Alphaproteobacteria transfer-messenger RNA: a 371-nucleotide sequence from Salinarimonas ramus. Its Rfam clan is "tRNA clan". Rfam describes the family as follows. Bacterial tmRNA, also known as 10Sa RNA or SsrA, is named for its dual tRNA and mRNA-like properties. Its role is to liberate the mRNA from a stalled ribosome. The family's RNA type in Rfam is non-coding RNA gene. For this family Rfam cites "tmRDB (tmRNA database)" (Zwieb et al., Nucleic Acids Res, 2003).

RNA sequence: UCGGUUGAAUCCGCCGCCGACGCCCUUAUAUUCGUGGGUGCCGUCGCAAGGCGGCUAUGGCGAUAAACGGCUGUCGCAAUAAGCCCUUCGGACCCGGGGGCGGUACCCGGCGCCUCCACCCGAGCCCAGAUCGCCCGCGUCGCGGGGCCUGGGUUCCGGUGGGGGCGAAAUAGGAUCGACGGGGGUCUAAAAGGCAGCCUUUCGUCCGGCAUGGUUCCGCCGUUAUCGGGCCGAAUUAUAGUUGCCAACGACAACUAUGCUAUGGACGUCCGCGCGGCUGCGUAAUGCGGUCUAGCGACAUCCGAACCAAGUCCUGAGGGGUAGCACUUUCAGGCGGGGCCCGGAGGCGCCUGGCAACAGAAGCCUCCACU
Number, nucleotide and partner (000 for none) at each position: 001u000002c000003g000004g000005u000006u000007g000008a000009a000010u000011c000012c000013g000014c000015c000016g000017c000018c000019g000020a000021c000022g000023c000024c000025c000026u000027u000028a000029u000030a000031u000032u000033c000034g000035u000036g000037g000038g000039u000040g055041c054042c053043g052044u051045c000046g000047c000048a000049a000050g000051g044052c043053g042054g041055c040056u000057a000058u000059g206060g205061c204062g203063a202064u000065a000066a000067a000068c000069g199070g198071c197072u196073g195074u194075c193076g000077c000078a000079a000080u000081a000082a000083g000084c185085c184086c183087u000088u182089c181090g180091g000092a000093c000094c110095c109096g108097g107098g106099g000100g000101c000102g000103g000104u000105a000106c098107c097108c096109g095110g094111c167112g166113c165114c164115u163116c162117c161118a160119c159120c158121c000122g000123a000124g000125c000126c000127c000128a000129g000130a000131u000132c000133g000134c000135c000136c000137g000138c000139g000140u000141c000142g000143c000144g000145g000146g000147g000148c000149c000150u000151g000152g000153g000154u000155u000156c000157c000158g120159g119160u118161g117162g116163g115164g114165g113166c112167g111168a000169a000170a000171u000172a000173g000174g000175a000176u000177c000178g000179a000180c090181g089182g088183g086184g085185g084186u000187c000188u000189a000190a000191a000192a000193g075194g074195c073196a072197g071198c070199c069200u000201u000202u063203c062204g061205u060206c059207c222208g221209g220210c219211a000212u233213g232214g231215u000216u230217c229218c228219g210220c209221c208222g207223u000224u000225a000226u000227c000228g218229g217230g216231c214232c213233g212234a000235a000236u000237u000238a000239u000240a000241g000242u000243u000244g000245c000246c000247a000248a000249c000250g000251a000252c000253a000254a000255c000256u000257a000258u000259g000260c000261u000262a000263u000264g000265g000266a000267c000268g000269u000270c000271c000272g000273c000274g000275c000276g000277g000278c000279u000280g000281c000282g000283u000284a000285a000286u000287g000288c000289g000290g000291u000292c000293u000294a000295g000296c000297g000298a000299c000300a000301u000302c000303c000304g000305a000306a000307c000308c000309a000310a000311g000312u000313c000314c000315u000316g000317a000318g000319g000320g000321g000322u000323a000324g000325c000326a000327c000328u000329u000330u000331c000332a000333g000334g000335c000336g000337g352338g351339g350340c349341c000342c000343g368344g367345a366346g365347g364348c363349g340350c339351c338352u337353g000354g000355c000356a000357a000358c000359a000360g000361a000362a000363g348364c347365c346366u345367c344368c343369a000370c000371u000